[Rfam]
RNA: Fluoride riboswitch aptamer (crcB RNA motif)
RNA sequence: UAGGUUACUGGGGAUGGCGUCCCCCAGGGCUUGUUCCCGAACCGCCUGAUACAUGAAGGCUGAUGACGCCUAUCUCUUG
Number, nucleotide and partner (000 for none) at each position: 001u000002a000003g000004g000005u000006u000007a000008c000009u000010g025011g024012g023013g022014a000015u000016g070017g069018c068019g067020u066021c065022c013023c012024c011025c010026a000027g000028g000029g000030c000031u000032u000033g000034u000035u000036c000037c000038c000039g000040a000041a000042c000043c000044g060045c059046c058047u057048g000049a000050u000051a000052c000053a000054u000055g000056a000057a047058g046059g045060c044061u000062g000063a000064u000065g021066a020067c019068g018069c017070c016071u000072a000073u000074c000075u000076c000077u000078u000079g000